[Rfam]
RNA sequence: ACCUGCAUUUGCAGGAGGUUGAGGUCUCACCCAGUUGUUGAUAGUGCAGGGAGAGGAGCUCCAAAAGCCUUUCCCGUGUUCGAUGGGCUCCAUCCCAUCGCUCCCAAGCCCUGUAGCCUUCAGACA
Dot-bracket structure: .((((((((....((.(((((.(((...)))))))).))...))))))))..........(..((.((.........(((.(..(.(...........).)...).)))......)).))..)...

Notes
A member of the RNA family "Small nucleolar RNA SNORA71" from Otus sunia, 126 nucleotides long. From the family's description: The members of this family belong to the H/ACA class of snoRNAs which bind a number of proteins (including dyskerin, Gar1p and Nop10p) to form snoRNP complexes. Rfam classes the family as an H/ACA-box small nucleolar RNA. Pairs were carried over by alignment from the consensus structure, which was predicted with PFOLD. A search with the family's covariance model found it, with a score of 63 bits.